[Rfam]
RNA sequence: UUCUAUCUUCGGGGCAGGGUGCAAUUCCCGACCGACGGUGACAGCAGGAAAUACUGCUGAAGUCCGUGACCCGCAGAACUUAGUUCUGCGGCUGAUCUGGUGUAAGUCCGGGACCGACAGUGAAAGUCUGGAUGGGAGAAGAUACGA
Numbered sequence: 001u002u003c004u005a006u007c008u009u010c011g012g013g014g015c016a017g018g019g020u021g022c023a024a025u026u027c028c029c030g031a032c033c034g035a036c037g038g039u040g041a042c043a044g045c046a047g048g049a050a051a052u053a054c055u056g057c058u059g060a061a062g063u064c065c066g067u068g069a070c071c072c073g074c075a076g077a078a079c080u081u082a083g084u085u086c087u088g089c090g091g092c093u094g095a096u097c098u099g100g101u102g103u104a105a106g107u108c109c110g111g112g113a114c115c116g117a118c119a120g121u122g123a124a125a126g127u128c129u130g131g132a133u134g135g136g137a138g139a140a141g142a143u144a145c146g147a
Stems, first nucleotide, its partner, number of pairs: 004144007017029003031127002033116002035067004062114002071091002096112005118130003
Shown here is a 147-nucleotide RNA from Terribacillus saccharophilus, a member of the family "FMN riboswitch aptamer (RFN element)". The source organism's lineage runs through Bacteria, Bacillati, Bacillota, Bacillaceae and Terribacillus.